[Rfam]
RNA sequence: AUGAACGAUACGGGAGAGACCCGCCCGGGGCGGGAGCCGAAGAAGCAAGCAACGGAAAGGGGUCAACUUUCCGGCGAAUCUUUCAGGCAAAAGGACCGUAUCCGGACA
Numbered sequence: 001a002u003g004a005a006c007g008a009u010a011c012g013g014g015a016g017a018g019a020c021c022c023g024c025c026c027g028g029g030g031c032g033g034g035a036g037c038c039g040a041a042g043a044a045g046c047a048a049g050c051a052a053c054g055g056a057a058a059g060g061g062g063u064c065a066a067c068u069u070u071c072c073g074g075c076g077a078a079u080c081u082u083u084c085a086g087g088c089a090a091a092a093g094g095a096c097c098g099u100a101u102c103c104g105g106a107c108a
Base pairs, nucleotide, nucleotide: 007102008101009100010099011098012097013096020034021033022032023031036088037087038086039084040083043082044081045080049075050074
A member of the RNA family "Glycine riboswitch aptamer" from Hydrogenispora ethanolica, 108 nucleotides long. Rfam's curators write: This family represents the bacterial glycine riboswitch. The source organism's lineage runs through Bacteria, Bacillati, Bacillota and Hydrogenispora.